[Rfam]
RNA: mir-395 microRNA precursor family
RNA sequence: AUGGCACCCAGAGUUCCUCCAAACACUUCAGUAGAAGUCUGCUCUAUAAGAAGAGGGUGAGACAUCCACUGAAGUGGUUGGGGGAACUCCAGGGGACAU
Numbered sequence: 001a002u003g004g005c006a007c008c009c010a011g012a013g014u015u016c017c018u019c020c021a022a023a024c025a026c027u028u029c030a031g032u033a034g035a036a037g038u039c040u041g042c043u044c045u046a047u048a049a050g051a052a053g054a055g056g057g058u059g060a061g062a063c064a065u066c067c068a069c070u071g072a073a074g075u076g077g078u079u080g081g082g083g084g085a086a087c088u089c090c091a092g093g094g095g096a097c098a099u
Stems, first nucleotide, its partner, number of pairs: 005095001007093002011089010022079002024076009034066002